[Rfam]
RNA sequence: GAUGCGAUGAUGAUUCAUAUAGGUUUUUGGCAGUAGUGGCAUCUGUCACUGUGAGCCUUCAAACCAAAAACGACUUCUCUUUCCACUGAGCAUU
Numbered sequence: 001g002a003u004g005c006g007a008u009g010a011u012g013a014u015u016c017a018u019a020u021a022g023g024u025u026u027u028u029g030g031c032a033g034u035a036g037u038g039g040c041a042u043c044u045g046u047c048a049c050u051g052u053g054a055g056c057c058u059u060c061a062a063a064c065c066a067a068a069a070a071c072g073a074c075u076u077c078u079c080u081u082u083c084c085a086c087u088g089a090g091c092a093u094u
Stems, first nucleotide, its partner, number of pairs: 001094005
Dot-bracket structure: (((((....................................................................................)))))
This 94-nucleotide sequence from Triticum urartu belongs to the Rfam family "Small nucleolar RNA Z152/R70/R12/". Its family is annotated with RNA processing and nucleolus in the Gene Ontology. NCBI's taxonomy places the organism under Eukaryota, Streptophyta, Poaceae, Triticinae, Triticum.